[Rfam]
RNA: MIR2617 microRNA precursor family
Organism: Medicago truncatula
RNA sequence: AUGAAAGUGUAGCAUGCCCAUUGUGGAAAUACUCUGAUGAAUAUUUGUUAUUUAAAUGCUUUUGGGUAGCGGGUGUUACAAUUUG
Dot-bracket structure: .(((.(.((((((((.((..(..............................................)..)))))))))).))))